[Rfam]
Rfam assigns this 85-nucleotide sequence from Clostridium sp. AM58-1XD to the family "c-di-GMP-I riboswitch aptamer".
RNA sequence: UUACAUAUUUGGCAAAACUGAUGAAAAUCAGCGACGCAAAGCUAAAGGGUCUAAAUCAGAGAUGAUAUGACAGCCAGUUGCCCCC
Numbered sequence: 001u002u003a004c005a006u007a008u009u010u011g012g013c014a015a016a017a018c019u020g021a022u023g024a025a026a027a028u029c030a031g032c033g034a035c036g037c038a039a040a041g042c043u044a045a046a047g048g049g050u051c052u053a054a055a056u057c058a059g060a061g062a063u064g065a066u067a068u069g070a071c072a073g074c075c076a077g078u079u080g081c082c083c084c085c
Stems, first nucleotide, its partner, number of pairs: 012037002018031005040079004047075002049071003056065003

The base pairs follow the family's consensus structure, which is taken from published work.